[Rfam]
RNA sequence: GAGUGGGAUGAUGAACAGUAAAUUAUUUCCUUAUUGGUUUGAUGACCAAUAUGAUGGCUAAAAUUUUAUUAGCUCUAUCUGAUCACUC
Numbered sequence: 001g002a003g004u005g006g007g008a009u010g011a012u013g014a015a016c017a018g019u020a021a022a023u024u025a026u027u028u029c030c031u032u033a034u035u036g037g038u039u040u041g042a043u044g045a046c047c048a049a050u051a052u053g054a055u056g057g058c059u060a061a062a063a064u065u066u067u068a069u070u071a072g073c074u075c076u077a078u079c080u081g082a083u084c085a086c087u088c
Stems, first nucleotide, its partner, number of pairs: 002087004044058001046057002
RNA: Small nucleolar RNA Z102/R77
Organism: Dendrobium nobile